Description: A member of the RNA family "Small nucleolar RNA Z266" from Zingiber officinale, 94 nucleotides long. A search with the family's covariance model found it, with a score of 73 bits. The literature on the family includes a 2003 paper in Nucleic Acids Res by Chen et al., "The high diversity of snoRNAs in plants: identification and comparative study of 120 snoRNA genes from Oryza sativa".

[Rfam]
RNA sequence: UCUUGGCAGGCAUGAUGAAUCAAUUAGAUGUGCUAAGUAUUUCGGUUCUAAUGAGCUAAAAUUUUGAGGCAUAUAAGAUUCUGACCUGCCAAUU
Numbered sequence: 001u002c003u004u005g006g007c008a009g010g011c012a013u014g015a016u017g018a019a020u021c022a023a024u025u026a027g028a029u030g031u032g033c034u035a036a037g038u039a040u041u042u043c044g045g046u047u048c049u050a051a052u053g054a055g056c057u058a059a060a061a062u063u064u065u066g067a068g069g070c071a072u073a074u075a076a077g078a079u080u081c082u083g084a085c086c087u088g089c090c091a092a093u094u
Stems, first nucleotide, its partner, number of pairs: 003092008